[Rfam]
RNA sequence: ACGCCGUGCGCGGUGUCCGUGCUCCCGAGCGAUGCGGGGCAAGUGAGCGGGGGUGGUGCCGUGUCGGCGCAGCACCACUCCCGCGAC
Numbered sequence: 001a002c003g004c005c006g007u008g009c010g011c012g013g014u015g016u017c018c019g020u021g022c023u024c025c026c027g028a029g030c031g032a033u034g035c036g037g038g039g040c041a042a043g044u045g046a047g048c049g050g051g052g053g054u055g056g057u058g059c060c061g062u063g064u065c066g067g068c069g070c071a072g073c074a075c076c077a078c079u080c081c082c083g084c085g086a087c
Stems, first nucleotide, its partner, number of pairs: 001016006018045003023039005047084013061070003
Dot-bracket structure: ((((((....)))))).(((..(((((.......)))))...))).(((((((((((((.(((....))).)))))))))))))...
Shown here is an 87-nucleotide RNA sequence from Streptomyces turgidiscabies, a member of the family "Streptomyces RNA 6106". Rfam describes the family as follows. Identified by deep sequencing of transcriptome at the end of exponential growth phase. Appears smaller on northern blot than sequencing transcript. This indicates processing step. Streptomyces specific. The match comes from Rfam's covariance-model search (54 bits).